[Rfam]
RNA sequence: UGAGCCGGGCGGUCAGCCGCUUGCCGACUUCGAGAGCGGCAAGAGGAAAGUCCGGGCAACGCAGAGCACCAUGGUUGUUAACGGCAACCUGCCGGCAACGGCAGAGCAGUGUGACAGAAAACAACCGCUGCCCCCGGGGCAGUAAGGGUGAAAAGGCGAGGUAAGAGCUCACCGGGCGGUAUGGCGACAUAUCGCGCCGCACACCUCAUGGGUUGCAAAGUCAAGUAUACCGGCAUUCAAGGGUUGCUCGCCCAUUGUCGGGGGGUAGACUGCUACCGAGGUCAUCACACAUGGCCCGACCAGAUGAUACGGCAACGUACAUCGUAGAUAAAUGGCUGACCGGCAUGCCCCGUCUCCGCUACGGCGAAGAUACCAGGCACGACCGACAUAACCCGGCUUAUAGCCCGGCUCACCCU
Numbered sequence: 001u002g003a004g005c006c007g008g009g010c011g012g013u014c015a016g017c018c019g020c021u022u023g024c025c026g027a028c029u030u031c032g033a034g035a036g037c038g039g040c041a042a043g044a045g046g047a048a049a050g051u052c053c054g055g056g057c058a059a060c061g062c063a064g065a066g067c068a069c070c071a072u073g074g075u076u077g078u079u080a081a082c083g084g085c086a087a088c089c090u091g092c093c094g095g096c097a098a099c100g101g102c103a104g105a106g107c108a109g110u111g112u113g114a115c116a117g118a119a120a121a122c123a124a125c126c127g128c129u130g131c132c133c134c135c136g137g138g139g140c141a142g143u144a145a146g147g148g149u150g151a152a153a154a155g156g157c158g159a160g161g162u163a164a165g166a167g168c169u170c171a172c173c174g175g176g177c178g179g180u181a182u183g184g185c186g187a188c189a190u191a192u193c194g195c196g197c198c199g200c201a202c203a204c205c206u207c208a209u210g211g212g213u214u215g216c217a218a219a220g221u222c223a224a225g226u227a228u229a230c231c232g233g234c235a236u237u238c239a240a241g242g243g244u245u246g247c248u249c250g251c252c253c254a255u256u257g258u259c260g261g262g263g264g265g266u267a268g269a270c271u272g273c274u275a276c277c278g279a280g281g282u283c284a285u286c287a288c289a290c291a292u293g294g295c296c297c298g299a300c301c302a303g304a305u306g307a308u309a310c311g312g313c314a315a316c317g318u319a320c321a322u323c324g325u326a327g328a329u330a331a332a333u334g335g336c337u338g339a340c341c342g343g344c345a346u347g348c349c350c351c352g353u354c355u356c357c358g359c360u361a362c363g364g365c366g367a368a369g370a371u372a373c374c375a376g377g378c379a380c381g382a383c384c385g386a387c388a389u390a391a392c393c394c395g396g397c398u399u400a401u402a403g404c405c406c407g408g409c410u411c412a413c414c415c416u
Stems, first nucleotide, its partner, number of pairs: 001412010011401001012340007020043007048399003052396005057215004064249004069211005074088005089104001091102004105206002109204005125147002127143007155173002158170003175197001176195008219271004230261005241253004278323002